The family of this 438-nucleotide part of an RNA from Candidozyma haemuli is "Eukaryotic large subunit ribosomal RNA". The family's consensus secondary structure is taken from published work. The family is grouped with related families in Rfam's "LSU clan".
[Rfam]
RNA sequence: GGUAGUAGCAAAUAUUCAAACGGGAACUUUGAAGACUGAAGUGGGGAAAGGUUCCAUGUCAACAGCAGAUGGACAUGGGUGAGUCGAUCCUAAGGCCUAGGUUAAACCUGACUUAACUGCCAACCUUGGUGUUGGUGUGGCCGAAAGGGAAUCCGGUUAAGAUUCCGGAACUUGGAUGCGGAUCUCACGGCAACGUAACUGAAUGUGGAGACGCCGGCGUGGGCCCUGGGAGGAGUUUUCUUUUUCUUCUAACAGCCUGUGACCCUGGAAUUGGAUUAUCCGGAGAUGGGGUUUGUUGGCUGGAAGAGCGCGGCCUUGUUUUGCCGCGUCCGGUGCGCCUACGACGGUCCUUGAAAAUCCGCAGGAACUACUUUUGAUUUCGCGCCAAGUCGUACUGAUAACCGCAGCAGGUCUCCAAGGUUAACAGCCUCUAGUUGA
Numbered sequence: 001g002g003u004a005g006u007a008g009c010a011a012a013u014a015u016u017c018a019a020a021c022g023g024g025a026a027c028u029u030u031g032a033a034g035a036c037u038g039a040a041g042u043g044g045g046g047a048a049a050g051g052u053u054c055c056a057u058g059u060c061a062a063c064a065g066c067a068g069a070u071g072g073a074c075a076u077g078g079g080u081g082a083g084u085c086g087a088u089c090c091u092a093a094g095g096c097c098u099a100g101g102u103u104a105a106a107c108c109u110g111a112c113u114u115a116a117c118u119g120c121c122a123a124c125c126u127u128g129g130u131g132u133u134g135g136u137g138u139g140g141c142c143g144a145a146a147g148g149g150a151a152u153c154c155g156g157u158u159a160a161g162a163u164u165c166c167g168g169a170a171c172u173u174g175g176a177u178g179c180g181g182a183u184c185u186c187a188c189g190g191c192a193a194c195g196u197a198a199c200u201g202a203a204u205g206u207g208g209a210g211a212c213g214c215c216g217g218c219g220u221g222g223g224c225c226c227u228g229g230g231a232g233g234a235g236u237u238u239u240c241u242u243u244u245u246c247u248u249c250u251a252a253c254a255g256c257c258u259g260u261g262a263c264c265c266u267g268g269a270a271u272u273g274g275a276u277u278a279u280c281c282g283g284a285g286a287u288g289g290g291g292u293u294u295g296u297u298g299g300c301u302g303g304a305a306g307a308g309c310g311c312g313g314c315c316u317u318g319u320u321u322u323g324c325c326g327c328g329u330c331c332g333g334u335g336c337g338c339c340u341a342c343g344a345c346g347g348u349c350c351u352u353g354a355a356a357a358u359c360c361g362c363a364g365g366a367a368c369u370a371c372u373u374u375u376g377a378u379u380u381c382g383c384g385c386c387a388a389g390u391c392g393u394a395c396u397g398a399u400a401a402c403c404g405c406a407g408c409a410g411g412u413c414u415c416c417a418a419g420g421u422u423a424a425c426a427g428c429c430u431c432u433a434g435u436u437g438a
Base pairs, nucleotide, nucleotide: 015033016032017031018030019029020028034436035435036434037433043416044415045414046413049396050395054078055077056076057075058074059073063071064070085392086391087390089148090147094142095141098110100109101108120135121134122133152169153168154167155166156165172388173387174386175385177384178383179382180381181380182378183377187196188195189194204363205362206361207360208359209358213348214347215346216345218343219342220341221340222339223338224337226333227332228331229249230248231247232246233245234244253302254301255300256299257298262292263291264290265289266288267287271283272282273281274280309328310327311326312325313324314323402411403410418430419429420428421427

The match comes from Rfam's covariance-model search (3202 bits). Rfam links the family to the GO terms structural constituent of ribosome and ribosome.